The record is a 248-nucleotide sequence from Spirosoma taeanense, which matches "Group I catalytic intron" in Rfam. A search with the family's covariance model found it, with a score of 59 bits. The organism belongs to Spirosoma, within Bacteria. Group I catalytic introns are large self-splicing ribozymes. They catalyse their own excision from mRNA, tRNA and rRNA precursors in a wide range of organisms. The core secondary structure consists of 9 paired regions (P1-P9).
[Rfam]
RNA sequence: GCACAUUGCUGAUUAGCGAGCUAAAAGCUCAGGCGUAUGACGAUUGAUGGGCGGUACCGGGGGAAACGCCGGUAUGUUAACCUGCCAAAUUCGGGGAAGCCGGUAGUGCGGUAAUCCCGAGCCAAGCCUGAAGGAGACUUCGGGAAGGUGUAGAGACUGAAUGGUAGGCACCCUAACAUGUAAUGGUGAGGGCGAAGAGACAGUCCAGACUACAAACCUCAGGCUGCUGAGGGCAACGAAAGUUGUAG
Numbered sequence: 001g002c003a004c005a006u007u008g009c010u011g012a013u014u015a016g017c018g019a020g021c022u023a024a025a026a027g028c029u030c031a032g033g034c035g036u037a038u039g040a041c042g043a044u045u046g047a048u049g050g051g052c053g054g055u056a057c058c059g060g061g062g063g064a065a066a067c068g069c070c071g072g073u074a075u076g077u078u079a080a081c082c083u084g085c086c087a088a089a090u091u092c093g094g095g096g097a098a099g100c101c102g103g104u105a106g107u108g109c110g111g112u113a114a115u116c117c118c119g120a121g122c123c124a125a126g127c128c129u130g131a132a133g134g135a136g137a138c139u140u141c142g143g144g145a146a147g148g149u150g151u152a153g154a155g156a157c158u159g160a161a162u163g164g165u166a167g168g169c170a171c172c173c174u175a176a177c178a179u180g181u182a183a184u185g186g187u188g189a190g191g192g193c194g195a196a197g198a199g200a201c202a203g204u205c206c207a208g209a210c211u212a213c214a215a216a217c218c219u220c221a222g223g224c225u226g227c228u229g230a231g232g233g234c235a236a237c238g239a240a241a242g243u244u245g246u247a248g
Base pairs, nucleotide, nucleotide: 005055006054007053008052009051010050012048013047014046015045016044060070061069081168082167083166084165086163087162091120092119093118094117095116096115100111101110102109121149122148127143128142153206155205156204157203158202159201171192172191173190174189176187177186212246213245214244215243